A member of the RNA family "Small nucleolar RNA snoR97" from Phtheirospermum japonicum, 110 nucleotides long. A reference for the family is Marker et al. (2002), "Experimental RNomics: identification of 140 candidates for small non-messenger RNAs in the plant Arabidopsis thaliana", Curr Biol. Pairs were carried over by alignment from the consensus structure, which was predicted with WAR. Gene Ontology terms of the family: RNA processing and nucleolus. The family has 7 seed sequences and 862 matches in Rfam 15.1. A search with the family's covariance model found it, with a score of 77 bits.
RNA sequence: AAUAAGUUUUGGUUCGAGGGUCUGAAAAACUCGUAAGAUUGAUGUGUUGUCUAUCAGCUUCUUCUCUUGAUAUUCUCACGGGUUUGGAGUUAAAUAACAGCACUACAUUU
Number, nucleotide and partner (000 for none) at each position: 001a000002a000003u000004a000005a000006g000007u000008u000009u000010u000011g000012g000013u000014u000015c000016g000017a000018g000019g000020g000021u000022c000023u000024g000025a000026a000027a000028a000029a000030c000031u000032c000033g000034u000035a000036a000037g000038a000039u000040u000041g000042a000043u000044g103045u102046g101047u100048u099049g098050u000051c000052u000053a000054u000055c000056a091057g090058c089059u088060u087061c086062u000063u000064c082065u081066c080067u000068u000069g000070a000071u000072a000073u000074u000075c000076u000077c000078a000079c000080g066081g065082g064083u000084u000085u000086g061087g060088a059089g058090u057091u056092a000093a000094a000095u000096a000097a000098c049099a048100g047101c046102a045103c044104u000105a000106c000107a000108u000109u000110u000
Overview
By type it is an H/ACA-box small nucleolar RNA.